RNA sequence: AUUAGCCAAUGUGCUUUGUAGUCUGAAUAACUCAGAAAUUGAUAGUGUUUACAUCAAUUUUGUCUCUGCUUUCGGCCUUGAGAUUUUAUUUACACUAGAACACCAAAUUA
Numbered sequence: 001a002u003u004a005g006c007c008a009a010u011g012u013g014c015u016u017u018g019u020a021g022u023c024u025g026a027a028u029a030a031c032u033c034a035g036a037a038a039u040u041g042a043u044a045g046u047g048u049u050u051a052c053a054u055c056a057a058u059u060u061u062g063u064c065u066c067u068g069c070u071u072u073c074g075g076c077c078u079u080g081a082g083a084u085u086u087u088a089u090u091u092a093c094a095c096u097a098g099a100a101c102a103c104c105a106a107a108u109u110a
Stems, first nucleotide, its partner, number of pairs: 045103006056091002059088001063083004